Listeria sRNA rli38: a 151-nucleotide RNA from Oceanobacillus oncorhynchi.

RNA sequence: AUUGAGUGGGAAUAAGAAUACAACUUAAUUUGAAGAGGGAACACCGAUUUAAAGGCAUUUAUCUUACUCAAAUAUGUAGAAAAUGCAUUAAAAAUAAUAUGGUUCCCUACCAAAAUCCCUACCAAUAAAAAAUUUUGGUAGGGAAUUUUGU
Numbered sequence: 001a002u003u004g005a006g007u008g009g010g011a012a013u014a015a016g017a018a019u020a021c022a023a024c025u026u027a028a029u030u031u032g033a034a035g036a037g038g039g040a041a042c043a044c045c046g047a048u049u050u051a052a053a054g055g056c057a058u059u060u061a062u063c064u065u066a067c068u069c070a071a072a073u074a075u076g077u078a079g080a081a082a083a084u085g086c087a088u089u090a091a092a093a094a095u096a097a098u099a100u101g102g103u104u105c106c107c108u109a110c111c112a113a114a115a116u117c118c119c120u121a122c123c124a125a126u127a128a129a130a131a132a133u134u135u136u137g138g139u140a141g142g143g144a145a146u147u148u149u150g151u
Stems, first nucleotide, its partner, number of pairs: 008107005050083001057077002060074003064070001087095002114147003117143009
Pairs were carried over by alignment from the consensus structure, which was predicted with RNAalifold. Lineage of the source: Bacteria > Bacillati > Bacilli > Caryophanales > Oceanobacillus. For this family Rfam cites "The Listeria transcriptional landscape from saprophytism to virulence" (Toledo-Arana et al., Nature, 2009).